[Rfam]
RNA sequence: CUUGACAUAGGCAUUCUCUUCUCAGUUCUUCCUCAAGUUAGGAAAAGCUGAGUUGAGAGGGGGAAAAAAAAAUCUU
Numbered sequence: 001c002u003u004g005a006c007a008u009a010g011g012c013a014u015u016c017u018c019u020u021c022u023c024a025g026u027u028c029u030u031c032c033u034c035a036a037g038u039u040a041g042g043a044a045a046a047g048c049u050g051a052g053u054u055g056a057g058a059g060g061g062g063g064a065a066a067a068a069a070a071a072a073u074c075u076u
Base pairs, nucleotide, nucleotide: 014059015058016057017056018055021052022051023050024049025048029044030043031042032041033040

The family of this 76-nucleotide RNA from Rhinopithecus bieti is "mir-320 microRNA precursor family". The base pairs follow the family's consensus structure, which was predicted with RNAalifold. Lineage of the source: Eukaryota > Opisthokonta > Eumetazoa > Colobinae > Rhinopithecus.